RNA sequence: UCCGCAGCGCAUGUUUCAUCACCACCUGCCGGAAGGGCACACCCUUCAGCCGCGCAGUGCGAAUAUAUUGCUGGGUCAUCACCUCGGUCAUCGAGGCGCGGGUCAUCCGGGCGAUAUAGCCCAUGCCAUAAAGCGCCACGGUCAUCACCGGCAGGGUGAAGUUCCAGAAAUUCGCGUCA
Dot-bracket structure: .(((..((((...(((...((.........(......(.(.(...(.(.((((((...((((.....))))...)......(((((.....)))))))))).).)...).).)......)...))..).)).))))..)))...(.(.(((..(((......)))......)))..).)